Background:
This 286-nucleotide RNA from Cavia porcellus belongs to the Rfam family "Mason-Pfizer monkey virus packaging signal". By type it is a cis-regulatory element. The organism belongs to Cavia, within Eukaryota. Pairs were carried over by alignment from the consensus structure, which was predicted with PFOLD. About the family: This family represents a group of sequences that are related to the Mason-Pfizer monkey virus (MPMV) packaging signal. The packaging signal is located in the 5' UTR and is required for specific RNA encapsidation.
RNA sequence: UGGUACCUAAUGUGGGUCCCGAGAAUGGGGGAACUAGUGAGGGAUUCUGUUUGAGAAGCUGGCACAAAAACAGAACAGAGAAAAUUCCAAAAAUAGAGGAAAAGACUAUGUGGGAAACUGCUGCUUUCUCUAAACCUCAGUAAUGGAACAGUGAUUAUGGGACAAGAAAUGAUCCAGAGUGAGAUUUUUGUUGAAAGUUUAGGAAAGGAUUUACAGGCACGAGGAGUAAAGGUUAAAAUUAAGCAGUUAUGUCAACAUUUUGAUUUUAUAAAGGAAGUUUGUCCCU
Numbered sequence: 001u002g003g004u005a006c007c008u009a010a011u012g013u014g015g016g017u018c019c020c021g022a023g024a025a026u027g028g029g030g031g032a033a034c035u036a037g038u039g040a041g042g043g044a045u046u047c048u049g050u051u052u053g054a055g056a057a058g059c060u061g062g063c064a065c066a067a068a069a070a071c072a073g074a075a076c077a078g079a080g081a082a083a084a085u086u087c088c089a090a091a092a093a094u095a096g097a098g099g100a101a102a103a104g105a106c107u108a109u110g111u112g113g114g115a116a117a118c119u120g121c122u123g124c125u126u127u128c129u130c131u132a133a134a135c136c137u138c139a140g141u142a143a144u145g146g147a148a149c150a151g152u153g154a155u156u157a158u159g160g161g162a163c164a165a166g167a168a169a170u171g172a173u174c175c176a177g178a179g180u181g182a183g184a185u186u187u188u189u190g191u192u193g194a195a196a197g198u199u200u201a202g203g204a205a206a207g208g209a210u211u212u213a214c215a216g217g218c219a220c221g222a223g224g225a226g227u228a229a230a231g232g233u234u235a236a237a238a239u240u241a242a243g244c245a246g247u248u249a250u251g252u253c254a255a256c257a258u259u260u261u262g263a264u265u266u267u268a269u270a271a272a273g274g275a276a277g278u279u280u281g282u283c284c285c286u
Stems, first nucleotide, its partner, number of pairs: 006031003012026002038057001097137003104131001105129001110124004144164002149161001152159002170213003173209003220262005226256002230248002233245001271286001273284003